[Rfam]
RNA sequence: AUCUAAUGCAGGUAGUUAUUACGCUGUCUACCCGUGUAAUCGAACCUAAAGUUUAAGCGACAUGUAAUGUCGUCGACCACGGGGGCCUCGCUAUGUUUAGCGGGGCUUUUAUUUUGC
Numbered sequence: 001a002u003c004u005a006a007u008g009c010a011g012g013u014a015g016u017u018a019u020u021a022c023g024c025u026g027u028c029u030a031c032c033c034g035u036g037u038a039a040u041c042g043a044a045c046c047u048a049a050a051g052u053u054u055a056a057g058c059g060a061c062a063u064g065u066a067a068u069g070u071c072g073u074c075g076a077c078c079a080c081g082g083g084g085g086c087c088u089c090g091c092u093a094u095g096u097u098u099a100g101c102g103g104g105g106c107u108u109u110u111a112u113u114u115u116g117c
Base pairs, nucleotide, nucleotide: 008027009026010025011024012022013021014020031083032082033081034080035079036078040076041075042074043053044052045051057073058072059071060070061069062068084107085106086105087104088103089102090101091100092099093098

Overview: Shown here is a 117-nucleotide RNA sequence from Lactobacillus equicursoris, a member of the family "DUF3800-I RNA". It is annotated as a small RNA. The organism belongs to Lactobacillus equicursoris, within Bacteria. From the family's description: Actinobacteria, Firmicutes, Fusobacteria, Proteobacteria (1 example), Tenericutes (2 examples).